[Rfam]
RNA sequence: GGUGAUAAACGGCAAUGUAAUAAGCUUAUUGGACCCGGGGGCGGUACCCGGCGCCUCCACCAUAACCAGGCGGUAGGGCCUUGUUAUGAUGGGGGCGAAAUAGGAUCGACAAGAGUGUAAAGAUUGACCUUUUGCCCGGCAUGAUACCACCGUUAUCGGGUCACUAGAGUAGUUGCAAAUGACAACAAUGCUCAGGGUUACGCUGUAGCUGCCUAA
Numbered sequence: 001g002g003u004g005a006u007a008a009a010c011g012g013c014a015a016u017g018u019a020a021u022a023a024g025c026u027u028a029u030u031g032g033a034c035c036c037g038g039g040g041g042c043g044g045u046a047c048c049c050g051g052c053g054c055c056u057c058c059a060c061c062a063u064a065a066c067c068a069g070g071c072g073g074u075a076g077g078g079c080c081u082u083g084u085u086a087u088g089a090u091g092g093g094g095g096c097g098a099a100a101u102a103g104g105a106u107c108g109a110c111a112a113g114a115g116u117g118u119a120a121a122g123a124u125u126g127a128c129c130u131u132u133u134g135c136c137c138g139g140c141a142u143g144a145u146a147c148c149a150c151c152g153u154u155a156u157c158g159g160g161u162c163a164c165u166a167g168a169g170u171a172g173u174u175g176c177a178a179a180u181g182a183c184a185a186c187a188a189u190g191c192u193c194a195g196g197g198u199u200a201c202g203c204u205g206u207a208g209c210u211g212c213c214u215a216a
Base pairs, nucleotide, nucleotide: 001136002135003134004133005132013126014125015124016123025115026114027113029112030111031110035051036050037049038048039047052097053096054095055094056093057092058091137152138151139150